[Rfam]
RNA sequence: UGAUACUUGUCGGAGUGCCUUUAGGCUGAGACCGUUCAUUCGGGAUCCGUUGAACCUGAUCUGGUUAAUACCAGCGAAGGGAACAAGAGAAAGCGUUCA
Number, nucleotide and partner (000 for none) at each position: 001u000002g000003a000004u000005a000006c087007u086008u085009g084010u083011c049012g048013g047014a046015g000016u043017g026018c025019c024020u000021u000022u000023a000024g019025g018026c017027u000028g000029a000030g000031a000032c000033c042034g041035u000036u000037c000038a000039u000040u000041c034042g033043g016044g000045a000046u014047c013048c012049g011050u000051u000052g000053a000054a000055c080056c079057u078058g000059a000060u000061c074062u073063g072064g071065u000066u000067a000068a000069u000070a000071c064072c063073a062074g061075c000076g000077a000078a057079g056080g055081g000082a000083a010084c009085a008086a007087g006088a000089g000090a000091a000092a000093g000094c000095g000096u000097u000098c000099a000
RNA: TPP riboswitch aptamer (THI element)
Organism: Vibrio astriarenae